Archaeal large subunit ribosomal RNA: a 357-nucleotide part of an RNA from candidate division MSBL1 archaeon SCGC-AAA382A20.
The match comes from Rfam's covariance-model search (2782 bits).
Nucleotides: 357
Base pairs, nucleotide, nucleotide: 001325002324003323004322009320010319011318012317013316014315015314016313018311019310020309035059036058037057038056039055044049060082061081062080063079064078065077066076067075068074083087095304096303097302098301099300100299101298102296103295106120107119108118123158125156126155127154128153129152130151131148134145135144136143137142162290163289164288166221167220168219171218172217173214174213175212176211177210180209181208182207187202188201189200190199191198222240223239224238225237226236227235241245261277262276263275264274265273266272338355339354340353341352342351
Number, partner (000 for none) and nucleotide at each position: 001325c002324g003323g004322g005000g006000g007000a008000u009320c010319c011318c012317a013316a014315g015314c016313c017000a018311g019310g020309g021000a022000a023000a024000u025000c026000g027000g028000c029000a030000a031000a032000u033000u034000g035059g036058c037057c038056c039055c040000g041000u042000a043000a044049g045000u046000u047000u048000g049044c050000g051000a052000g053000a054000a055039g056038g057037g058036g059035u060082g061081c062080c063079u064078g065077c066076c067075c068074u069000g070000u071000g072000a073000a074068a075067g076066g077065g078064c079063a080062g081061g082060u083087c084000g085000c086000a087083g088000a089000g090000a091000c092000c093000g094000a095304g096303g097302g098301g099300g100299g101298c102296c103295g104000a105000c106120u107119g108118u109000u110000u111000a112000a113000u114000a115000a116000a117000a118108a119107c120106a121000u122000a123158g124000g125156c126155a127154a128153c129152c130151g131148c132000a133000a134145g135144u136143c137142c138000g139000a140000a141000a142137g143136g144135a145134u146000u147000a148131g149000u150000a151130c152129g153128g154127u155126u156125g157000g158123u159000g160000a161000a162290u163289c164288c165000u166221g167220c168219c169000c170000a171218g172217u173214a174213g175212c176211g177210g178000c179000u180209u181208g182207u183000c184000a185000a186000g187202c188201a189200g190199g191198g192000u193000u194000a195000c196000a197000a198191c199190c200189u201188u202187g203000u204000g205000a206000a207182g208181c209180g210177c211176c212175g213174c214173u215000a216000g217172a218171c219168g220167g221166c222240g223239g224238g225237g226236g227235u228000a229000a230000c231000u232000a233000u234000a235227a236226c237225c238224c239223u240222c241245u242000u243000a244000a245241g246000g247000u248000a249000a250000c251000g252000a253000a254000g255000u256000g257000c258000c259000u260000u261277g262276c263275c264274g265273c266272u267000g268000a269000a270000u271000u272266g273265g274264c275263g276262g277261c278000c279000u280000g281000c282000a283000u284000g285000a286000a287000c288164g289163g290162a291000c292000c293000a294000a295103c296102g297000a298101g299100c300099u301098c302097c303096c304095c305000a306000c307000u308000g309020u310019c311018c312000c313016g314015g315014u316013u317012u318011g319010g320009g321000u322004c323003c324002c325001g326000g327000u328000g329000a330000a331000c332000c333000u334000a335000c336000a337000g338355u339354c340353u341352g342351g343000c344000g345000c346000a347000g348000a349000g350000a351342c352341c353340a354339g355338a356000c357000a